[Rfam]
RNA sequence: UGGAGCCUAUGAUGAUUAGUUAUCUCUGUCAGAAAAAUCUUGGCUGAGGGGAAAGUAUUUAUUCUGAGGCUUCG
Numbered sequence: 001u002g003g004a005g006c007c008u009a010u011g012a013u014g015a016u017u018a019g020u021u022a023u024c025u026c027u028g029u030c031a032g033a034a035a036a037a038u039c040u041u042g043g044c045u046g047a048g049g050g051g052a053a054a055g056u057a058u059u060u061a062u063u064c065u066g067a068g069g070c071u072u073c074g
Stems, first nucleotide, its partner, number of pairs: 001074007
This 74-nucleotide RNA sequence from Ursus americanus belongs to the Rfam family "Small nucleolar RNA R38". About the family: snoR38 is a C/D box small nucleolar RNA conserved across yeast, human, Arabidopsis and rice. It is encoded in the intron of elongation factor-1 gamma in both pombe and cerevisiae. snoR38 guides the methylation of 2'-O-ribose sites in 28S rRNA. It scores 47 bits against the family's covariance model. The family's consensus secondary structure was predicted with PFOLD. Rfam classes the family as a C/D-box small nucleolar RNA.